[Rfam]
The family of this 262-nucleotide sequence from Anaerotalea alkaliphila is "Bacterial large signal recognition particle RNA". It is annotated as a non-coding RNA gene. Pairs were carried over by alignment from the consensus structure, which is taken from published work. About the family: The signal recognition particle (SRP) is a universally conserved ribonucleoprotein involved in the co-translational targeting of proteins to membranes. NCBI's taxonomy places the organism under Bacteria, Bacillati, Bacillota, Eubacteriales, Anaerotalea.
RNA sequence: CCGUGCAGCCGGGGAGUCAGCGGUGCCCUGUACCUGCAAUCCGCUACAGCAGGGGUGAUGCCAAUCCGAGGCUUGCAUCUUGCAAGGCUGGCUUUGAUAAGUGGCAAUGACGACCGGGUCUUGCGCAACAGGACUCCAUGAACCGUGUCAGGACCGGAAGGUAGCAGCACUAAGUGGAACCCCCUGUGUGCCGCAAGGGCGCCUGGUCUGAGUCAACUGUCAGGGUAACGCUUGUGAAUGCCUGUCGAAGUGCGGCGCACGG
Numbered sequence: 001c002c003g004u005g006c007a008g009c010c011g012g013g014g015a016g017u018c019a020g021c022g023g024u025g026c027c028c029u030g031u032a033c034c035u036g037c038a039a040u041c042c043g044c045u046a047c048a049g050c051a052g053g054g055g056u057g058a059u060g061c062c063a064a065u066c067c068g069a070g071g072c073u074u075g076c077a078u079c080u081u082g083c084a085a086g087g088c089u090g091g092c093u094u095u096g097a098u099a100a101g102u103g104g105c106a107a108u109g110a111c112g113a114c115c116g117g118g119u120c121u122u123g124c125g126c127a128a129c130a131g132g133a134c135u136c137c138a139u140g141a142a143c144c145g146u147g148u149c150a151g152g153a154c155c156g157g158a159a160g161g162u163a164g165c166a167g168c169a170c171u172a173a174g175u176g177g178a179a180c181c182c183c184c185u186g187u188g189u190g191c192c193g194c195a196a197g198g199g200c201g202c203c204u205g206g207u208c209u210g211a212g213u214c215a216a217c218u219g220u221c222a223g224g225g226u227a228a229c230g231c232u233u234g235u236g237a238a239u240g241c242c243u244g245u246c247g248a249a250g251u252g253c254g255g256c257g258c259a260c261g262g
Stems, first nucleotide, its partner, number of pairs: 001262006008056003011029004016024003033053005061255002066250001070246003076240003080237007091226001093224006101217002103214003112208008120197006126188002129186004135178005145170004153162003